[Rfam]
Actinobacteria sRNA Ms_AS-4: an 82-nucleotide RNA sequence from Lentzea tibetensis. The source organism's lineage runs through Bacteria, Bacillati, Actinomycetota, Pseudonocardiaceae and Lentzea. It scores 79 bits against the family's covariance model. The literature on the family includes a 2013 paper in RNA by Li et al., "Identification of small RNAs in Mycobacterium smegmatis using heterologous Hfq".

RNA sequence: CUUGGCGUCGGCGUAGCGGUCGGGGUCGUCUCCGAACUCGGCGAGCACCCGAGCACCGAGGACCUGUCCCAGCCCCGGCUGG
Numbered sequence: 001c002u003u004g005g006c007g008u009c010g011g012c013g014u015a016g017c018g019g020u021c022g023g024g025g026u027c028g029u030c031u032c033c034g035a036a037c038u039c040g041g042c043g044a045g046c047a048c049c050c051g052a053g054c055a056c057c058g059a060g061g062a063c064c065u066g067u068c069c070c071a072g073c074c075c076c077g078g079c080u081g082g
Stems, first nucleotide, its partner, number of pairs: 008044003012040002018038003023033003056078002060075002063072001